[Rfam]
Nucleotides: 136
Base pairs, nucleotide, nucleotide: 011033016031017030019028020027043056044055045054046053060078061077062076063075064074065073084097085096086095087094107130109128110127111126112125113124114123115122116121
Number, partner (000 for none) and nucleotide at each position: 001000u002000c003000a004000u005000u006000u007000a008000c009000c010000c011033g012000c013000a014000a015000u016031u017030a018000a019028g020027c021000u022000u023000u024000c025000u026000c027020g028019c029000a030017u031016a032000u033011u034000a035000c036000u037000u038000a039000a040000a041000u042000c043056g044055u045054c046053c047000u048000u049000g050000u051000u052000u053046g054045g055044a056043c057000a058000c059000c060078g061077a062076g063075u064074g065073g066000c067000u068000c069000c070000u071000g072000u073065c074064c075063a076062c077061u078060c079000u080000g081000u082000u083000u084097g085096a086095c087094g088000c089000c090000u091000c092000c093000c094087u095086g096085u097084u098000a099000u100000c101000a102000a103000c104000u105000u106000c107130a108000a109128a110127g111126c112125c113124g114123c115122c116121g117000g118000a119000a120000a121116c122115g123114g124113c125112g126111g127110c128109u129000c130107u131000u132000u133000u134000u135000u136000u
This 136-nucleotide RNA sequence from Tardiphaga sp. belongs to the Rfam family "Alphaproteobacterial sRNA BjrC1505". A reference for the family is Madhugiri et al. (2012), "Small RNAs of the Bradyrhizobium/Rhodopseudomonas lineage and their analysis", RNA Biol. The family's RNA type in Rfam is small RNA.